The record is a 62-nucleotide RNA, which matches "eL15-Euryarchaeota ribosomal protein leader" in Rfam.
The sequence is in the family's curated seed alignment.
By type it is a cis-regulatory leader.

RNA sequence: CCUGUCCACACAGGUAGGGAUGUGACUCUCGGCGUCUUUGGCGUCGAGAGUUGAACCAUGCA
Dot-bracket structure: (((((....)))))..((.....((((((((((((.....))))))))))))...)).....